The family of this 95-nucleotide RNA sequence from Aegilops tauschii is "Small nucleolar RNA snR60/Z15/Z230/Z193/J17". The pairing is the family consensus, mapped onto this sequence. Rfam links the family to the GO terms RNA processing and nucleolus. The family's RNA type in Rfam is C/D-box small nucleolar RNA. The literature on the family includes a 2003 paper in Nucleic Acids Res by Chen et al., "The high diversity of snoRNAs in plants: identification and comparative study of 120 snoRNA genes from Oryza sativa". Lineage of the source: Eukaryota > Magnoliopsida > Petrosaviidae > Triticeae > Aegilops tauschii. It scores 74 bits against the family's covariance model.
RNA sequence: CCAGGUCGAAUGAUGAUCACAAGUUCAUAGUUCAUAUGAUCAAAUCGUGAUUACUUGAACAAAAAAUAGUCUUUUGCUCCUAUCUGACGACCUUU
Dot-bracket structure: ...(((((...............................................................................)))))...